[Rfam]
RNA sequence: AGGGCAUAUGAUGACUACUGGUGGUGCACGAGUCACUCAUGAUGAGCACCGUGUGUCUGGAACUCUGAGGUCCAA
Numbered sequence: 001a002g003g004g005c006a007u008a009u010g011a012u013g014a015c016u017a018c019u020g021g022u023g024g025u026g027c028a029c030g031a032g033u034c035a036c037u038c039a040u041g042a043u044g045a046g047c048a049c050c051g052u053g054u055g056u057c058u059g060g061a062a063c064u065c066u067g068a069g070g071u072c073c074a075a
Stems, first nucleotide, its partner, number of pairs: 002073004